[Rfam]
RNA: Bacterial large subunit ribosomal RNA, nucleotides 9 to 577
Organism: Paenibacillus durus
RNA sequence: UAGUAAGAGCACACGGAGGAUGCCUAGGCGCCAGGAGCCGAUGAAGGACGUGGCGAACAACGAAAAGGCCUCGGGGAGCUGUAAGCAAGCUUUGAUCCGGGGGUGUCCGAAUGGGGAAACCCGGCUGUGGUAAUGCACAGUCACUUCUCUCUGAAUUCAUAGGAGAGCUAGAGGCAGACCAGGGGAACUGAAACAUCUAAGUACCCUGAGGAAGAGAAAACAAGAGUGAUUCCGUCAGUAGCGGCGAGCGAACGCGGAACAGCCUAAACCGAAGAGCUUGCUCUUCGGGGUUGUGGGACGUCUCACAUGGAGUUACAAAGGAACGGUUUAAGCGAAGAGGUCUGGAAAGGCCCGCUAGAAAAGGUAAAAGCCCUGUAGCUGAAAAGUCGUUCCCUCCGAGACGGAUCCCGAGUAGUGCGGGGCACGUGAAACCCCGUAUGAAUCCGGCAGGACCAUCUGCCAAGGCUAAAUACUCCCUGGCGACCGAUAGUGAAACAGUACCGUGAGGGAAAGGUGAAAAGCACCCCGGAAGGGGAGUGAAAGAGUACCUGAAACCGUGUGCUUACAAG
Numbered sequence: 001u002a003g004u005a006a007g008a009g010c011a012c013a014c015g016g017a018g019g020a021u022g023c024c025u026a027g028g029c030g031c032c033a034g035g036a037g038c039c040g041a042u043g044a045a046g047g048a049c050g051u052g053g054c055g056a057a058c059a060a061c062g063a064a065a066a067g068g069c070c071u072c073g074g075g076g077a078g079c080u081g082u083a084a085g086c087a088a089g090c091u092u093u094g095a096u097c098c099g100g101g102g103g104u105g106u107c108c109g110a111a112u113g114g115g116g117a118a119a120c121c122c123g124g125c126u127g128u129g130g131u132a133a134u135g136c137a138c139a140g141u142c143a144c145u146u147c148u149c150u151c152u153g154a155a156u157u158c159a160u161a162g163g164a165g166a167g168c169u170a171g172a173g174g175c176a177g178a179c180c181a182g183g184g185g186a187a188c189u190g191a192a193a194c195a196u197c198u199a200a201g202u203a204c205c206c207u208g209a210g211g212a213a214g215a216g217a218a219a220a221c222a223a224g225a226g227u228g229a230u231u232c233c234g235u236c237a238g239u240a241g242c243g244g245c246g247a248g249c250g251a252a253c254g255c256g257g258a259a260c261a262g263c264c265u266a267a268a269c270c271g272a273a274g275a276g277c278u279u280g281c282u283c284u285u286c287g288g289g290g291u292u293g294u295g296g297g298a299c300g301u302c303u304c305a306c307a308u309g310g311a312g313u314u315a316c317a318a319a320g321g322a323a324c325g326g327u328u329u330a331a332g333c334g335a336a337g338a339g340g341u342c343u344g345g346a347a348a349g350g351c352c353c354g355c356u357a358g359a360a361a362a363g364g365u366a367a368a369a370g371c372c373c374u375g376u377a378g379c380u381g382a383a384a385a386g387u388c389g390u391u392c393c394c395u396c397c398g399a400g401a402c403g404g405a406u407c408c409c410g411a412g413u414a415g416u417g418c419g420g421g422g423c424a425c426g427u428g429a430a431a432c433c434c435c436g437u438a439u440g441a442a443u444c445c446g447g448c449a450g451g452a453c454c455a456u457c458u459g460c461c462a463a464g465g466c467u468a469a470a471u472a473c474u475c476c477c478u479g480g481c482g483a484c485c486g487a488u489a490g491u492g493a494a495a496c497a498g499u500a501c502c503g504u505g506a507g508g509g510a511a512a513g514g515u516g517a518a519a520a521g522c523a524c525c526c527c528g529g530a531a532g533g534g535g536a537g538u539g540a541a542a543g544a545g546u547a548c549c550u551g552a553a554a555c556c557g558u559g560u561g562c563u564u565a566c567a568a569g
Stems, first nucleotide, its partner, number of pairs: 007564010022549001023514002027485002029482007036474002038174002046108003049062003069102007078090003113122003123142007144171002147167006179210001180208005190197002220227002230470001231258005241249002261467004269288007295409003299403005318395001320393010331380003337353001339352004356360001362374003415439008446461005501508002524535004